[Rfam]
RNA: Plastid-psbM 3UTR RNA
Organism: Senna tora
RNA sequence: UCUGAUAGUAUGGUAGAAAGAAAUAAAAUCUAUUUCUUUCUACCAUACUAUCUAUUAUUGUAGUGUAUAAAGUUU
Number, nucleotide and partner (000 for none) at each position: 001u000002c000003u000004g052005a051006u050007a049008g048009u047010a046011u045012g044013g043014u042015a041016g040017a039018a038019a037020g036021a035022a034023a033024u032025a031026a000027a000028a000029u000030c000031u025032a024033u023034u022035u021036c020037u019038u018039u017040c016041u015042a014043c013044c012045a011046u010047a009048c008049u007050a006051u005052c004053u000054a000055u000056u000057a000058u000059u000060g000061u000062a000063g000064u000065g000066u000067a000068u000069a000070a000071a000072g000073u000074u000075u000